A member of the RNA family "BsrG" from Tumebacillus flagellatus, 287 nucleotides long.
Rfam 15.1 lists 614 matches to the family in 343 species.
bsrE, bsrG and bsrH pair through intermolecular interactions with antisense sRNAs.
By type it is a small RNA.
A reference for the family is Saito et al. (2008), "Novel small RNA-encoding genes in the intergenic regions of Bacillus subtilis", Gene.
The match comes from Rfam's covariance-model search (57 bits).
NCBI's taxonomy places the organism under Bacteria, Bacillota, Bacilli, Caryophanales, Tumebacillus.
RNA sequence: CGCAAAAUGAAUCGGCUCUCAAGGGCGGUCGCUCAUCUCCGGAGGGAGGUGAGAGAGAUGACGGUAUACGAGUCUUUGUCCAUCAUGGUUAGCUUCGGGAACUUUCUGAUUGCCUUCAUGAUGUGCAUCCUCACCUGUUUUCUCGUCUUUCUAAACAGAAAGAAAUAAGACCCCCUUGGGCAGCAACCGAGCUGGGGUCUUAUCUCUUUACUCGAAUGAGAGAUGAGCCUAGCCCAAAGGGCUGACUGUUUUGUGCGGAACGACCGUGAGUGUUGGCGCACUCGCGG
Numbered sequence: 001c002g003c004a005a006a007a008u009g010a011a012u013c014g015g016c017u018c019u020c021a022a023g024g025g026c027g028g029u030c031g032c033u034c035a036u037c038u039c040c041g042g043a044g045g046g047a048g049g050u051g052a053g054a055g056a057g058a059u060g061a062c063g064g065u066a067u068a069c070g071a072g073u074c075u076u077u078g079u080c081c082a083u084c085a086u087g088g089u090u091a092g093c094u095u096c097g098g099g100a101a102c103u104u105u106c107u108g109a110u111u112g113c114c115u116u117c118a119u120g121a122u123g124u125g126c127a128u129c130c131u132c133a134c135c136u137g138u139u140u141u142c143u144c145g146u147c148u149u150u151c152u153a154a155a156c157a158g159a160a161a162g163a164a165a166u167a168a169g170a171c172c173c174c175c176u177u178g179g180g181c182a183g184c185a186a187c188c189g190a191g192c193u194g195g196g197g198u199c200u201u202a203u204c205u206c207u208u209u210a211c212u213c214g215a216a217u218g219a220g221a222g223a224u225g226a227g228c229c230u231a232g233c234c235c236a237a238a239g240g241g242c243u244g245a246c247u248g249u250u251u252u253g254u255g256c257g258g259a260a261c262g263a264c265c266g267u268g269a270g271u272g273u274u275g276g277c278g279c280a281c282u283c284g285c286g287g
Stems, first nucleotide, its partner, number of pairs: 001257004006252002010247001012231001014229004018180008027172004033052003037049002040046001060147005066141001073088002097139002100136001189213002232242004264287010